[Rfam]
RNA sequence: CUAGGGCUGGGAAGCUUCGAUCCUUGGACUGCAUAUCGGUCACCGAUGUCCAAGGGGAGCCAAUGGUGAGACCGAACCGUCCUUGA
Numbered sequence: 001c002u003a004g005g006g007c008u009g010g011g012a013a014g015c016u017u018c019g020a021u022c023c024u025u026g027g028a029c030u031g032c033a034u035a036u037c038g039g040u041c042a043c044c045g046a047u048g049u050c051c052a053a054g055g056g057g058a059g060c061c062a063a064u065g066g067u068g069a070g071a072c073c074g075a076a077c078c079g080u081c082c083u084u085g086a
Stems, first nucleotide, its partner, number of pairs: 002085005008079003014060002022055008038073002040069005
Notes: Shown here is an 86-nucleotide RNA sequence, a member of the family "c-di-GMP-II-GAG riboswitch aptamer". The literature on the family includes a 2017 paper in Proc Natl Acad Sci U S A by Weinberg et al., "Bioinformatic analysis of riboswitch structures uncovers variant classes with altered ligand specificity". The base pairs follow the family's consensus structure, which is taken from published work.